[Rfam]
A member of the RNA family "Eukaryotic large subunit ribosomal RNA" from Microbotryum intermedium, 393 nucleotides of a longer RNA.

RNA sequence: GAAGGGUUAUCGUAACAGUAAUUCAACUUAGUACGAGAGGAACCGUUGAUUCACGUAAUUGGUAUUUGCGGCUGUCCGAUCGGGCAAUGCCGCGAAGCUACCACGUGUUGGAUUAUGGCUGAACGCCUCUAAGCCAGAAUCCGUGCUAGAAACGAUGAUGUUAGUCCCGCGAAUCUUAGUCGAGUUAAGAUAGAGCUUGUGCUCGUAAACCAUAUUUGACUGGUCACGCCUCUCGGAGCGGAAAGGCUUCGGGGGUAGCCGGUGAAUUACAUUCGAAAAAUCCGCGGGGGUGAAUCCUUUGCAAACGACUUAAAUAGAACGGAGUGCUGUAAGUAGUAGAGUAGCCUUGUUGUUACGAUCUACUGAGGCUAAGCUCCUGUUCAAUAGAUUUGU
Dot-bracket structure: .....((((((((...(((.(.(((((.................))))).)(((((...(((....(((((.(((((....)))))...)))))...)))..))))).(((....(((((...........)))))....))).)))....))))))))......((((((...............................................................................................................))))))...(((((.(..(.......)..)....((((((((.((.....((((.(..(((((......)))))..)))))....))....))).)))))....)))))..